[Rfam]
RNA sequence: AACGUUUAUGAUAUGGACAAAUAUCGUGGAUUUUUUAUCUUUAUUAAUUAAAUGAUACGAAAGUGACUUAUUUUUUUAAAAUUAUAAUAGUGAAUGGUGACUUGCAGAAACGAAGUAUUUAUGACGAGACUCCUGAGGGAACAGGACGAGCCGAAGAUUACAGGCUGAGGCUGUCCCCUCGGAAAGCGAAGUCAUAUAAUACGAAGUUUCAUCAUAUAAAAAGCGCUAA
Dot-bracket structure: ...((.(((((...............((((.........))))(((.((...((...)).)).)))..............(.(.(....((........))(((......))).(((((((((((.....(((..((((.((.(....((((..........))))....).)).)))).))).......)))))).))))).).).))))).).))............
Numbered sequence: 001a002a003c004g005u006u007u008a009u010g011a012u013a014u015g016g017a018c019a020a021a022u023a024u025c026g027u028g029g030a031u032u033u034u035u036u037a038u039c040u041u042u043a044u045u046a047a048u049u050a051a052a053u054g055a056u057a058c059g060a061a062a063g064u065g066a067c068u069u070a071u072u073u074u075u076u077u078a079a080a081a082u083u084a085u086a087a088u089a090g091u092g093a094a095u096g097g098u099g100a101c102u103u104g105c106a107g108a109a110a111c112g113a114a115g116u117a118u119u120u121a122u123g124a125c126g127a128g129a130c131u132c133c134u135g136a137g138g139g140a141a142c143a144g145g146a147c148g149a150g151c152c153g154a155a156g157a158u159u160a161c162a163g164g165c166u167g168a169g170g171c172u173g174u175c176c177c178c179u180c181g182g183a184a185a186g187c188g189a190a191g192u193c194a195u196a197u198a199a200u201a202c203g204a205a206g207u208u209u210c211a212u213c214a215u216a217u218a219a220a221a222a223g224c225g226c227u228a229a
Stems, first nucleotide, its partner, number of pairs: 004217002007214001008212004027043004044066003048062002053059002081208001083206001085204001090101002102113003115202005120196006131183003136179004141174002144171001149166004